[Rfam]
Shown here is a 75-nucleotide sequence from Bombycilla garrulus, a member of the family "Small nucleolar RNA SNORD26". Clan: SNORD26 clan. On this family, see Tycowski et al., Nature 1996: "A mammalian gene with introns instead of exons generating stable RNA products". Its family is annotated with RNA processing and nucleolus in the Gene Ontology. The organism belongs to Bombycilla, within Eukaryota. Pairs were carried over by alignment from the consensus structure, which was predicted with PFOLD.

RNA sequence: CUGCGGGGAUGAUCAAACUGAACUCUCUCUUGCUGAUUGGUCAGUGGAGAAGCUUGAUCUUAAAUUCUGAGUGGC
Dot-bracket structure: ((((..................................................................)))).